Annotation: This 105-nucleotide sequence belongs to the Rfam family "Small nucleolar RNA Z279/snoR105/snoR108". On this family, see Marker et al., Curr Biol 2002: "Experimental RNomics: identification of 140 candidates for small non-messenger RNAs in the plant Arabidopsis thaliana".
RNA sequence: GGGAAAUGAGGAAUGGUUAUAAUCUCGCUUUAAUGCGUGAUGAGCGCUCCGCUCAAAGCCUGUUACGACUAAUUGGGCGCUCCAAUUUUUAUACAAUCUGAUCCC
Dot-bracket structure: ((((.........(.(.((....(.(((......))).).((.(((((..............(.......)...)).)).).)).......))).).....))))
Numbered sequence: 001g002g003g004a005a006a007u008g009a010g011g012a013a014u015g016g017u018u019a020u021a022a023u024c025u026c027g028c029u030u031u032a033a034u035g036c037g038u039g040a041u042g043a044g045c046g047c048u049c050c051g052c053u054c055a056a057a058g059c060c061u062g063u064u065a066c067g068a069c070u071a072a073u074u075g076g077g078c079g080c081u082c083c084a085a086u087u088u089u090u091a092u093a094c095a096a097u098c099u100g101a102u103c104c105c
Stems, first nucleotide, its partner, number of pairs: 001105004014096001016094001018093002024039001026037003041084002044081001045079002047076002063071001
Overview: The base pairs follow the family's consensus structure, which was predicted with PFOLD. The family's RNA type in Rfam is C/D-box small nucleolar RNA. Its Rfam clan is "snoU13 clan". About the family: This family includes the plant snoRNAs known as Z279, snoR105 and snoR108. The family has 20 seed sequences and 906 matches in Rfam 15.1. Rfam links the family to the GO terms RNA processing and nucleolus. It is one of the family's seed sequences.